[Rfam]
This 114-nucleotide RNA from Paractinoplanes abujensis belongs to the Rfam family "SAM (S-adenosyl methionine) riboswitch aptamer". About the family: SAM-IV is a mRNA element that regulates gene expression via direct sensing of S-adenosylmethionine (SAM or AdoMet). Rfam links the family to the GO terms regulation of gene expression and S-adenosylmethionine metabolic process. NCBI's taxonomy places the organism under Bacteria, Bacillati, Actinomycetes, Micromonosporaceae, Paractinoplanes. The literature on the family includes a 2008 paper in RNA by Weinberg et al., "The aptamer core of SAM-IV riboswitches mimics the ligand-binding site of SAM-I riboswitches".

RNA sequence: GGUCACGAGUGCCAGCGUCAAGCCCCGGCUCGCUGGCCGGCAACCCCCUGUGGUGGGUGGGUGCUCCGGGUGAUGACCAGGUCCGGCGCGCAGCGUGCCGGGCAAACCACGACU
Numbered sequence: 001g002g003u004c005a006c007g008a009g010u011g012c013c014a015g016c017g018u019c020a021a022g023c024c025c026c027g028g029c030u031c032g033c034u035g036g037c038c039g040g041c042a043a044c045c046c047c048c049u050g051u052g053g054u055g056g057g058u059g060g061g062u063g064c065u066c067c068g069g070g071u072g073a074u075g076a077c078c079a080g081g082u083c084c085g086g087c088g089c090g091c092a093g094c095g096u097g098c099c100g101g102g103c104a105a106a107c108c109a110c111g112a113c114u
Stems, first nucleotide, its partner, number of pairs: 001078004009038001011037006021030002039065003044061003047056002081103010